[Rfam]
RNA: Actino-pnp RNA
Nucleotides: 060
Base pairs, nucleotide, nucleotide: 003058004057005056006055007054009052010051011050012049013048017044018043019042020041021040023038024037025036026035027034028033
Number, partner (000 for none) and nucleotide at each position: 001000c002000g003058c004057g005056g006055u007054c008000c009052u010051c011050g012049g013048u014000a015000g016000u017044g018043g019042c020041u021040u022000c023038c024037g025036g026035a027034g028033a029000u030000u031000g032000u033028u034027u035026u036025c037024c038023g039000u040021g041020g042019g043018u044017c045000u046000c047000a048013a049012u050011c051010g052009a053000a054007g055006g056005c057004c058003g059000g060000u